MIR6217 microRNA precursor family: a 228-nucleotide sequence from Miscanthus lutarioriparius. Its family is annotated with RISC complex and miRNA-mediated post-transcriptional gene silencing in the Gene Ontology. The family's consensus secondary structure was predicted with RNAalifold. Lineage of the source: Eukaryota > Streptophyta > Magnoliopsida > Poaceae > Miscanthus.

[Rfam]
RNA sequence: UGGCCAUAGAAUAACUUAUUCUGUGGCCACUUUGAGUUAUGGAUAAUUACUAUGCUAAUUCACGAGAUUACAGUAACUCCUUACUAUAUGAUUUACUAGAACAUUACGGUAAAUAUCACCGUGAGUUGUAGUAACACGAGUAUCGUAAAUGCAUAUUCAUAUUAUCGUAAAUUGGUACAAACAUUAUCGUAAAUCAAGGUGGCCAUAGAAUAAGUUAUUCUAUGGCCA
Dot-bracket structure: (((((((((((((((((((((((((((((((((...(((((.(((((...(.((((((((.((..(((.(.((.(.....((((...(((.(((((((.(((.(....(.......).....).))).)))))....)).))).)))).......).).).).))))).)))))))).)...))))))))))...)))))))))))))))))))))))))))))))))